RNA sequence: AUAUGUUCUGAGGAGACUGAAUAAUUUUGAAAGAAAAGUAUCUGUACUUUUCAGCUUAAUAUCUGAAACGCGACUCAUCGAGUCGCUUGUAUAUUUCACUGAUUUUUGCCACUGGGCUAAGGAAUAGGAGCUUGCUCCGUUCUAGCCACGGGUUGGCCCGGUCUUGCACUUCCUCCGGGAUUCGGCCCACUUUUU
Numbered sequence: 001a002u003a004u005g006u007u008c009u010g011a012g013g014a015g016a017c018u019g020a021a022u023a024a025u026u027u028u029g030a031a032a033g034a035a036a037a038g039u040a041u042c043u044g045u046a047c048u049u050u051u052c053a054g055c056u057u058a059a060u061a062u063c064u065g066a067a068a069c070g071c072g073a074c075u076c077a078u079c080g081a082g083u084c085g086c087u088u089g090u091a092u093a094u095u096u097c098a099c100u101g102a103u104u105u106u107u108g109c110c111a112c113u114g115g116g117c118u119a120a121g122g123a124a125u126a127g128g129a130g131c132u133u134g135c136u137c138c139g140u141u142c143u144a145g146c147c148a149c150g151g152g153u154u155g156g157c158c159c160g161g162u163c164u165u166g167c168a169c170u171u172c173c174u175c176c177g178g179g180a181u182u183c184g185g186c187c188c189a190c191u192u193u194u195u
Stems, first nucleotide, its partner, number of pairs: 049068006070086007115147005121141002127138004150188006157179005
The record is a 195-nucleotide RNA sequence from Holothuria leucospilota, which matches "U2 spliceosomal RNA" in Rfam. Rfam links the family to the GO terms mRNA branch site recognition, pre-mRNA branch point binding and U2 snRNP. From the family's description: U2 is a small nuclear RNA (snRNA) component of the spliceosome (involved in pre-mRNA splicing). Complementary binding between U2 snRNA (in an area lying towards the 5' end but 3' to hairpin I) and the branchpoint sequence (BPS) of the intron results the bulging out of an unpaired adenosine, on the BPS, which initiates a nucleophilic attack at the intronic 5' splice site, thus starting the first of two transesterification reactions that mediate splicing. The literature on the family includes a 1997 paper in Nucleic Acids Res by Zwieb, "The uRNA database". The organism belongs to Holothuria, within Eukaryota.